[Rfam]
RNA sequence: AUAACUCAAAUUUCUAUGCAGUUCGAACGUUUGCCUACGUUUGCCGCUAGGGGCGCUGUUCCAACUGCAUACAAAUUUGACUUA
Numbered sequence: 001a002u003a004a005c006u007c008a009a010a011u012u013u014c015u016a017u018g019c020a021g022u023u024c025g026a027a028c029g030u031u032u033g034c035c036u037a038c039g040u041u042u043g044c045c046g047c048u049a050g051g052g053g054c055g056c057u058g059u060u061c062c063a064a065c066u067g068c069a070u071a072c073a074a075a076u077u078u079g080a081c082u083u084a
Stems, first nucleotide, its partner, number of pairs: 008078006015071002018068001020066004025061005034052003039047002
The family of this 84-nucleotide RNA sequence from Bombyx mori is "mir-2807 microRNA precursor family". Lineage of the source: Eukaryota > Metazoa > Eumetazoa > Bombycoidea > Bombyx. It scores 77 bits against the family's covariance model. Pairs were carried over by alignment from the consensus structure, which was predicted with RNAalifold. For this family Rfam cites "Novel microRNAs in silkworm (Bombyx mori)" (Cai et al., Funct Integr Genomics, 2010). Gene Ontology terms of the family: RISC complex and miRNA-mediated post-transcriptional gene silencing.